[Rfam]
This 76-nucleotide sequence from Ornithorhynchus anatinus belongs to the Rfam family "Small nucleolar RNA SNORD28". Pairs were carried over by alignment from the consensus structure, which was predicted with PFOLD. Rfam classes the family as a C/D-box small nucleolar RNA. On this family, see Tycowski et al., Nature 1996: "A mammalian gene with introns instead of exons generating stable RNA products".

RNA sequence: GCCAGAUGAUUUCAAUCCUUAUUUUCUGAUGCUCCGUGAGGUACAGAUAUCAUAGCAUGUUAGAGUUCUGAUGGCA
Numbered sequence: 001g002c003c004a005g006a007u008g009a010u011u012u013c014a015a016u017c018c019u020u021a022u023u024u025u026c027u028g029a030u031g032c033u034c035c036g037u038g039a040g041g042u043a044c045a046g047a048u049a050u051c052a053u054a055g056c057a058u059g060u061u062a063g064a065g066u067u068c069u070g071a072u073g074g075c076a
Stems, first nucleotide, its partner, number of pairs: 001075004
Dot-bracket structure: ((((...................................................................)))).